This 41-nucleotide RNA sequence from Nannospalax galili belongs to the Rfam family "MAT2A 3'UTR stem loop D".
The family has 35 seed sequences and 422 matches in Rfam 15.1.
Lineage of the source: Eukaryota > Tetrapoda > Theria > Euarchontoglires > Nannospalax.
A reference for the family is Parker et al. (2011), "New families of human regulatory RNA structures identified by comparative analysis of vertebrate genomes", Genome Res.
Rfam classes the family as a cis-regulatory element.
The base pairs follow the family's consensus structure, which is taken from published work.

[Rfam]
RNA sequence: UCUGGGAUAUAGUGUAAGUACAGAGAAGGAAUCACUCCAGG
Numbered sequence: 001u002c003u004g005g006g007a008u009a010u011a012g013u014g015u016a017a018g019u020a021c022a023g024a025g026a027a028g029g030a031a032u033c034a035c036u037c038c039a040g041g
Stems, first nucleotide, its partner, number of pairs: 001041006008034001009032002013028001